RNA: glmS glucosamine-6-phosphate activated ribozyme aptamer
Organism: Paenibacillus lutrae
RNA sequence: GGGUUUCAACAAGCGCCAGAACUUGUGCGGAAAGCAAUUCUCUCUGUAAGAGGCAUGCGGACAAUCGUCUAGUGUGCAGGGCAGAGGUGAUAAGCGGAGCCGACAAGUUGACGAGGUGAAGGUGUUCGAAUUUUCGGCGGGGACCUUCCGGCAUUCUCAUUCGUGCCGACAAGCUGACAUGCAAACUGUCCGGGUGACCGGGCAUACAAGAAUUCAGCGGAAUGAUCC
Numbered sequence: 001g002g003g004u005u006u007c008a009a010c011a012a013g014c015g016c017c018a019g020a021a022c023u024u025g026u027g028c029g030g031a032a033a034g035c036a037a038u039u040c041u042c043u044c045u046g047u048a049a050g051a052g053g054c055a056u057g058c059g060g061a062c063a064a065u066c067g068u069c070u071a072g073u074g075u076g077c078a079g080g081g082c083a084g085a086g087g088u089g090a091u092a093a094g095c096g097g098a099g100c101c102g103a104c105a106a107g108u109u110g111a112c113g114a115g116g117u118g119a120a121g122g123u124g125u126u127c128g129a130a131u132u133u134u135c136g137g138c139g140g141g142g143a144c145c146u147u148c149c150g151g152c153a154u155u156c157u158c159a160u161u162c163g164u165g166c167c168g169a170c171a172a173g174c175u176g177a178c179a180u181g182c183a184a185a186c187u188g189u190c191c192g193g194g195u196g197a198c199c200g201g202g203c204a205u206a207c208a209a210g211a212a213u214u215c216a217g218c219g220g221a222a223u224g225a226u227c228c
Stems, first nucleotide, its partner, number of pairs: 020109007029100001118148005126137004149168006173218005187204007